A member of the RNA family "Bacterial RNase P class A" from an Olavius algarvensis Delta 4 endosymbiont, 393 nucleotides long. By type it is a ribozyme.

RNA sequence: GGAGUCGGCCAGAUGAUCGCCGGGGUUUUAGGCCCCGGAGGAAAGUCCGAACACCGCAGGGCAGGGUGCUCCAUAACAUGGAGUCGCGGCGACGUGCAGGAAAGUGCAACAGAAAGUAUACCGCCUGCGAAUUGGCCGGGGCGACCCGGCUUAUUCGCCGGUAAGGGUGAAACGGUGCGGUAAGAGCGCACCAGUUUUCCGGGUGACCGGAAAAGCUAUGUAAACCCCACCCGGUGCAAGACCAAAUAGGGGAGCGUUCGAGGGCGGCCCGUCCAAGCUCCCGGGUAGGUCGCACGAGGUCGCGGGCAACCGUGAUCCCAGAUGAAUGAUCAUCACCCCUUGUGCGGGUAACCGGCAGGGGGGACAGAAUUCGGCUUAUGGACGACUCCAACC
Numbered sequence: 001g002g003a004g005u006c007g008g009c010c011a012g013a014u015g016a017u018c019g020c021c022g023g024g025g026u027u028u029u030a031g032g033c034c035c036c037g038g039a040g041g042a043a044a045g046u047c048c049g050a051a052c053a054c055c056g057c058a059g060g061g062c063a064g065g066g067u068g069c070u071c072c073a074u075a076a077c078a079u080g081g082a083g084u085c086g087c088g089g090c091g092a093c094g095u096g097c098a099g100g101a102a103a104g105u106g107c108a109a110c111a112g113a114a115a116g117u118a119u120a121c122c123g124c125c126u127g128c129g130a131a132u133u134g135g136c137c138g139g140g141g142c143g144a145c146c147c148g149g150c151u152u153a154u155u156c157g158c159c160g161g162u163a164a165g166g167g168u169g170a171a172a173c174g175g176u177g178c179g180g181u182a183a184g185a186g187c188g189c190a191c192c193a194g195u196u197u198u199c200c201g202g203g204u205g206a207c208c209g210g211a212a213a214a215g216c217u218a219u220g221u222a223a224a225c226c227c228c229a230c231c232c233g234g235u236g237c238a239a240g241a242c243c244a245a246a247u248a249g250g251g252g253a254g255c256g257u258u259c260g261a262g263g264g265c266g267g268c269c270c271g272u273c274c275a276a277g278c279u280c281c282c283g284g285g286u287a288g289g290u291c292g293c294a295c296g297a298g299g300u301c302g303c304g305g306g307c308a309a310c311c312g313u314g315a316u317c318c319c320a321g322a323u324g325a326a327u328g329a330u331c332a333u334c335a336c337c338c339c340u341u342g343u344g345c346g347g348g349u350a351a352c353c354g355g356c357a358g359g360g361g362g363g364a365c366a367g368a369a370u371u372c373g374g375c376u377u378a379u380g381g382a383c384g385a386c387u388c389c390a391a392c393c
Stems, first nucleotide, its partner, number of pairs: 001389007009381003012334007020038008043377003047374005052236004059270004064232005069083005084098001085096004099227002104225002106221003121166002123162003127158005174192006194216001195214008240291004250282006262274004298317008